[Rfam]
About this RNA
Lysine riboswitch aptamer: a 175-nucleotide sequence from Roseburia sp. CAG:197. Lineage of the source: Bacteria > Bacillati > Clostridia > Lachnospirales > Roseburia.
RNA sequence: AACUCAGAUAGAGGUCGCGCAAGCUAUGAGUAUUCUGUGGGAUGUGACAGACACAGGCGAACACAGAGGAAAGGGGCGAGCGCCGAAGAGAUAAAAGGGCUGUACUUUUAUUUCUGGGCAUAUGGUAAAGAACCAUAUGACUGUCAACAUACAAAGUUGGAGAGCUAUCGAAUCU
Numbered sequence: 001a002a003c004u005c006a007g008a009u010a011g012a013g014g015u016c017g018c019g020c021a022a023g024c025u026a027u028g029a030g031u032a033u034u035c036u037g038u039g040g041g042a043u044g045u046g047a048c049a050g051a052c053a054c055a056g057g058c059g060a061a062c063a064c065a066g067a068g069g070a071a072a073g074g075g076g077c078g079a080g081c082g083c084c085g086a087a088g089a090g091a092u093a094a095a096a097g098g099g100c101u102g103u104a105c106u107u108u109u110a111u112u113u114c115u116g117g118g119c120a121u122a123u124g125g126u127a128a129a130g131a132a133c134c135a136u137a138u139g140a141c142u143g144u145c146a147a148c149a150u151a152c153a154a155a156g157u158u159g160g161a162g163a164g165c166u167a168u169c170g171a172a173u174c175u
Stems, first nucleotide, its partner, number of pairs: 007169005017083004023077003033068007087115011116142002119139008144160005150154001